[Rfam]
A member of the RNA family "Alphaproteobacteria transfer-messenger RNA" from Acidomonas methanolica, 336 nucleotides long.
For this family Rfam cites "Phylogenetic analysis of tmRNA secondary structure" (Williams and Bartel, RNA, 1996).

RNA sequence: CCUCUUGCGCGUAUCGACCCGCCAUUCUAUAUCUGCCAUCGCCGGAGUGUUCACGCACUUGGCUAUGGCGAUAAACGGCUCGUGGAAUAAACGUUGUGGACCCGGGGGCAGUGCCCGGCGUCUCCACCAUUCUCUCUCCCGGCUUCCGUCAGGACCGGGAACCGAUGGGGACGAAACAGGCUCGACACGCGCAGUAAAGACCAGUCUUUUGCCCGGCAUUGUACCGCCGUUAUCGGGCUGACCUACAAGUGCCAACGACAAUUCGAAGGUGCUCGCUGUCGCUGCAUAAGCGAUAAGCGCGGUUCGGGAGGGCACCGGGCAACAGAAGCCCUCCCA
Numbered sequence: 001c002c003u004c005u006u007g008c009g010c011g012u013a014u015c016g017a018c019c020c021g022c023c024a025u026u027c028u029a030u031a032u033c034u035g036c037c038a039u040c041g042c043c044g045g046a047g048u049g050u051u052c053a054c055g056c057a058c059u060u061g062g063c064u065a066u067g068g069c070g071a072u073a074a075a076c077g078g079c080u081c082g083u084g085g086a087a088u089a090a091a092c093g094u095u096g097u098g099g100a101c102c103c104g105g106g107g108g109c110a111g112u113g114c115c116c117g118g119c120g121u122c123u124c125c126a127c128c129a130u131u132c133u134c135u136c137u138c139c140c141g142g143c144u145u146c147c148g149u150c151a152g153g154a155c156c157g158g159g160a161a162c163c164g165a166u167g168g169g170g171a172c173g174a175a176a177c178a179g180g181c182u183c184g185a186c187a188c189g190c191g192c193a194g195u196a197a198a199g200a201c202c203a204g205u206c207u208u209u210u211g212c213c214c215g216g217c218a219u220u221g222u223a224c225c226g227c228c229g230u231u232a233u234c235g236g237g238c239u240g241a242c243c244u245a246c247a248a249g250u251g252c253c254a255a256c257g258a259c260a261a262u263u264c265g266a267a268g269g270u271g272c273u274c275g276c277u278g279u280c281g282c283u284g285c286a287u288a289a290g291c292g293a294u295a296a297g298c299g300c301g302g303u304u305c306g307g308g309a310g311g312g313c314a315c316c317g318g319g320c321a322a323c324a325g326a327a328g329c330c331c332u333c334c335c336a
Stems, first nucleotide, its partner, number of pairs: 041063005067213005077206004082201002092191003096188003102118005119173007214229004219240001221238001224236002300317004307333002310330002
Dot-bracket structure: ........................................(((((.............)))))...(((((.....((((.((........(((.(((...(((((.......)))))(((((((.........................................)))))))............))))))........)).))))..)))))((((.[.[..[[)))).....]].].]...........................................................((((...[[.[[..))))...........]].]]...